Shown here is an 88-nucleotide RNA sequence from Canis lupus, a member of the family "mir-8799 microRNA precursor family".
Lineage of the source: Eukaryota > Gnathostomata > Laurasiatheria > Carnivora > Canis lupus.
Gene Ontology terms of the family: RISC complex and miRNA-mediated post-transcriptional gene silencing.

[Rfam]
RNA sequence: CGGGGAAGGCCGGAUCCUGGGCUGUGUCCCCGCGCCCUGUGCUCCGGGGCCUGCGCUGUUGGAUUCAUGCUCCCGCCCGCAGCCCCCU
Dot-bracket structure: .((((...((.((...(.(((.((((((((.((((...(.(((....)))).)))).)..)))..)))).))).).))))...)))).
Numbered sequence: 001c002g003g004g005g006a007a008g009g010c011c012g013g014a015u016c017c018u019g020g021g022c023u024g025u026g027u028c029c030c031c032g033c034g035c036c037c038u039g040u041g042c043u044c045c046g047g048g049g050c051c052u053g054c055g056c057u058g059u060u061g062g063a064u065u066c067a068u069g070c071u072c073c074c075g076c077c078c079g080c081a082g083c084c085c086c087c088u
Stems, first nucleotide, its partner, number of pairs: 002087004009080002012078002017075001019073003023069004027063003030058001032056004039051001041050003

Source information
The match comes from Rfam's covariance-model search (72 bits).